[Rfam]
RNA sequence: GAAGCCAGCUAGGUCGUCGCUGGUGCAUAAGCCGAAAGGCUGCACUGGAGGAACGUCCGGACUGCAUAGGAUAGCGUAGCAGGUAACACCUGCGCACCGACCGCCUGCAAGGGCCUAAGGUGACGAUUAGAGCAACAGAGACGAGCCGCUUAAGUGCGGGUGAAACGGGCAAUCUCUACGCGCAGCAAUACCAAAUAGGCCAACACGCACAACCCUGUGUUGUGCAAGCUGUGAUCCGCAGAUUGUUGGCGGGUAGGUAGCACCGAGCCGCUUGGGCGACCAGCGGCCCAGAUGAAUGGCGACCAGGGUGGUGUUACAACCACUUCACAAAAUCCGGCGUAUCGGCUGGCUUCACAC
Numbered sequence: 001g002a003a004g005c006c007a008g009c010u011a012g013g014u015c016g017u018c019g020c021u022g023g024u025g026c027a028u029a030a031g032c033c034g035a036a037a038g039g040c041u042g043c044a045c046u047g048g049a050g051g052a053a054c055g056u057c058c059g060g061a062c063u064g065c066a067u068a069g070g071a072u073a074g075c076g077u078a079g080c081a082g083g084u085a086a087c088a089c090c091u092g093c094g095c096a097c098c099g100a101c102c103g104c105c106u107g108c109a110a111g112g113g114c115c116u117a118a119g120g121u122g123a124c125g126a127u128u129a130g131a132g133c134a135a136c137a138g139a140g141a142c143g144a145g146c147c148g149c150u151u152a153a154g155u156g157c158g159g160g161u162g163a164a165a166c167g168g169g170c171a172a173u174c175u176c177u178a179c180g181c182g183c184a185g186c187a188a189u190a191c192c193a194a195a196u197a198g199g200c201c202a203a204c205a206c207g208c209a210c211a212a213c214c215c216u217g218u219g220u221u222g223u224g225c226a227a228g229c230u231g232u233g234a235u236c237c238g239c240a241g242a243u244u245g246u247u248g249g250c251g252g253g254u255a256g257g258u259a260g261c262a263c264c265g266a267g268c269c270g271c272u273u274g275g276g277c278g279a280c281c282a283g284c285g286g287c288c289c290a291g292a293u294g295a296a297u298g299g300c301g302a303c304c305a306g307g308g309u310g311g312u313g314u315u316a317c318a319a320c321c322a323c324u325u326c327a328c329a330a331a332a333u334c335c336g337g338c339g340u341a342u343c344g345g346c347u348g349g350c351u352u353c354a355c356a357c
Stems, first nucleotide, its partner, number of pairs: 001353010011342001012304007020048008053340003057337005062185004069237004074181005079093005094124001095122004125176002130174002132170002146159002148155002189259004199250006229241004267287005273282003